[Rfam]
RNA sequence: UCAGUUCAUGUAAACAUCCUACACUCAGCUGUAACAUGUGGACUGGCUGGGAGGUGGAUGUUUACCUCAUCUGU
Numbered sequence: 001u002c003a004g005u006u007c008a009u010g011u012a013a014a015c016a017u018c019c020u021a022c023a024c025u026c027a028g029c030u031g032u033a034a035c036a037u038g039u040g041g042a043c044u045g046g047c048u049g050g051g052a053g054g055u056g057g058a059u060g061u062u063u064a065c066c067u068c069a070u071c072u073g074u
Stems, first nucleotide, its partner, number of pairs: 002073003006069001008067001010065010022053001024051007
mir-30 microRNA precursor family: a 74-nucleotide RNA sequence from Hipposideros armiger. The family has 175 seed sequences and 3,879 matches in Rfam 15.1. The literature on the family includes a 2002 paper in Genes Dev by Mourelatos et al., "miRNPs: a novel class of ribonucleoproteins containing numerous microRNAs". This family consists of the mammalian microRNA (miRNA) precursor mir-30a. Animal miRNAs are transcribed as ~70nt precursors and subsequently processed by the Dicer enzyme to give a ~22nt product. In this case the mature sequence comes from both the 3' (miR-30) and 5' (mir-97-6) arms of the precursor. The extents of the hairpin precursors are not generally known and are estimated based on hairpin prediction.